[Rfam]
RNA sequence: GCCUAGGUAGCUCAACUGGUUAGAGCAUACGGUUCAUACCCGUAAGGUUAUCAGUUCGACCCUGAUCUUAGGCA
Numbered sequence: 001g002c003c004u005a006g007g008u009a010g011c012u013c014a015a016c017u018g019g020u021u022a023g024a025g026c027a028u029a030c031g032g033u034u035c036a037u038a039c040c041c042g043u044a045a046g047g048u049u050a051u052c053a054g055u056u057c058g059a060c061c062c063u064g065a066u067c068u069u070a071g072g073c074a
Stems, first nucleotide, its partner, number of pairs: 001073007010026004028044005050066005
The family of this 74-nucleotide sequence from Sneathia vaginalis is "tRNA". From the family's description: Transfer RNA (tRNA) molecules are approximately 80 nucleotides in length. NCBI's taxonomy places the organism under Bacteria, Fusobacteriati, Fusobacteriales, Leptotrichiaceae, Sneathia. It scores 65 bits against the family's covariance model.